[Rfam]
RNA sequence: UUCCCAUCCAAGGGGAGUCCCUGAGAGGGGCUGAGAGACCGUCGGCGCUUGCGCAAAACGGUGACCCUUCGAACCUGAUCCAGGUCAAGCUGGCGAAGGGAUGGACCGUGCCUCACUU
Numbered sequence: 001u002u003c004c005c006a007u008c009c010a011a012g013g014g015g016a017g018u019c020c021c022u023g024a025g026a027g028g029g030g031c032u033g034a035g036a037g038a039c040c041g042u043c044g045g046c047g048c049u050u051g052c053g054c055a056a057a058a059c060g061g062u063g064a065c066c067c068u069u070c071g072a073a074c075c076u077g078a079u080c081c082a083g084g085u086c087a088a089g090c091u092g093g094c095g096a097a098g099g100g101a102u103g104g105a106c107c108g109u110g111c112c113u114c115a116c117u118u
Stems, first nucleotide, its partner, number of pairs: 007105004011068004017031005038062005074099003080093004